The record is a 125-nucleotide RNA from Geobacillus kaustophilus, which matches "epsC RNA" in Rfam. The organism belongs to Geobacillus kaustophilus, within Bacteria. By type it is a cis-regulatory element. The base pairs follow the family's consensus structure, which is taken from published work.
Nucleotides: 125
Stems, first nucleotide, its partner, number of pairs: 001019004007034007035108004039103008049077005057067002080092004111125005
Number, partner (000 for none) and nucleotide at each position: 001019c002018g003017g004016u005000g006000a007034u008033g009032u010031c011030u012029c013028c014000u015000u016004a017003c018002c019001g020000u021000u022000a023000u024000c025000a026000a027000c028013g029012g030011a031010g032009g033008c034007a035108c036107u037106c038105g039103g040102c041101c042100a043099u044098g045097c046096c047000g048000u049077g050076g051075g052074u053073g054000g055000g056000g057067a058066c059000g060000a061000u062000g063000a064000c065000g066058g067057u068000c069000c070000c071000g072000g073053c074052a075051c076050c077049u078000u079000a080092g081091a082090c083089g084000c085000c086000c087000g088000u089083c090082g091081u092080c093000g094000a095000g096046g097045g098044u099043g100042u101041g102040g103039c104000g105038u106037g107036a108035g109000g110000g111125c112124g113123g114122g115121u116000u117000a118000g119000a120000u121115g122114c123113c124112c125111g